[Rfam]
RNA sequence: AUCGUUCAUCCAUUACGGACGGAAGUAGGCACCAGCUGAAGGAACGCGCU
Numbered sequence: 001a002u003c004g005u006u007c008a009u010c011c012a013u014u015a016c017g018g019a020c021g022g023a024a025g026u027a028g029g030c031a032c033c034a035g036c037u038g039a040a041g042g043a044a045c046g047c048g049c050u
Base pairs, nucleotide, nucleotide: 003046004045005044006043007042009019010018011017022047028037029036030035